Alphaproteobacterial sRNA BjrC1505: a 137-nucleotide sequence from Roseibium alexandrii. By type it is a small RNA. Pairs were carried over by alignment from the consensus structure. A reference for the family is Madhugiri et al. (2012), "Small RNAs of the Bradyrhizobium/Rhodopseudomonas lineage and their analysis", RNA Biol.
RNA sequence: UUAUUCAUUUACCAAUCAUUAAUCUUUCCAAAUUAUAAAUUUAUGCAUCCAGUCAUCUGGAUAGGAGUGGUUCAGACCACUCUGUUUGACGCCUCCCUGUUAAAGACUUAGAGCCGCAGCCGUGCGGCUCUUUUUUU
Numbered sequence: 001u002u003a004u005u006c007a008u009u010u011a012c013c014a015a016u017c018a019u020u021a022a023u024c025u026u027u028c029c030a031a032a033u034u035a036u037a038a039a040u041u042u043a044u045g046c047a048u049c050c051a052g053u054c055a056u057c058u059g060g061a062u063a064g065g066a067g068u069g070g071u072u073c074a075g076a077c078c079a080c081u082c083u084g085u086u087u088g089a090c091g092c093c094u095c096c097c098u099g100u101u102a103a104a105g106a107c108u109u110a111g112a113g114c115c116g117c118a119g120c121c122g123u124g125c126g127g128c129u130c131u132u133u134u135u136u137u
Base pairs, nucleotide, nucleotide: 002043003042005014020035021034022033023032025030048061049060050059051058065082066081067080068079069078070077088101089100090099091098110131111130112129113128114127115126116125117124118123